[Rfam]
RNA sequence: ACAAUAGUAAAACAGUGCAGGAUGAGAACCACUGGUUCGAGCCGAGCGAAGCGAGACGACAACGCGAACGCGUUGCCCGCAGGGUGAGGUCGAAGACCGAAUCAAUCCAGCACGGCCCACCA
Numbered sequence: 001a002c003a004a005u006a007g008u009a010a011a012a013c014a015g016u017g018c019a020g021g022a023u024g025a026g027a028a029c030c031a032c033u034g035g036u037u038c039g040a041g042c043c044g045a046g047c048g049a050a051g052c053g054a055g056a057c058g059a060c061a062a063c064g065c066g067a068a069c070g071c072g073u074u075g076c077c078c079g080c081a082g083g084g085u086g087a088g089g090u091c092g093a094a095g096a097c098c099g100a101a102u103c104a105a106u107c108c109a110g111c112a113c114g115g116c117c118c119a120c121c122a
Stems, first nucleotide, its partner, number of pairs: 015113004020108002023105001033086001036081001038079002043053002060075006
The family of this 122-nucleotide RNA from Ewingella americana is "RtT RNA". A search with the family's covariance model found it, with a score of 72 bits. Rfam classes the family as a cis-regulatory element. The source organism's lineage runs through Bacteria, Pseudomonadati, Gammaproteobacteria, Ewingella and Ewingella americana. This family represents a bacterial cis-regulatory element known as RtT RNA. The exact function of RtT is unknown although it is thought that it may be involved in changing the cellular response in relation to amino acid starvation.